This 75-nucleotide RNA sequence from Pyrus ussuriensis x Pyrus communis belongs to the Rfam family "Small nucleolar RNA Z159/U59". Lineage of the source: Eukaryota > Streptophyta > Gunneridae > Pentapetalae > Pyrus. Its family is annotated with RNA processing and nucleolus in the Gene Ontology. By type it is a C/D-box small nucleolar RNA. It scores 41 bits against the family's covariance model.
[Rfam]
RNA sequence: UGUUCUGAUGAUGAAAUAUUUAAUUCUCCUGAGCUUAUUGAUUGCUGAAAAUCUGGAGACCUGAACUGAAGAACA
Numbered sequence: 001u002g003u004u005c006u007g008a009u010g011a012u013g014a015a016a017u018a019u020u021u022a023a024u025u026c027u028c029c030u031g032a033g034c035u036u037a038u039u040g041a042u043u044g045c046u047g048a049a050a051a052u053c054u055g056g057a058g059a060c061c062u063g064a065a066c067u068g069a070a071g072a073a074c075a
Stems, first nucleotide, its partner, number of pairs: 003073004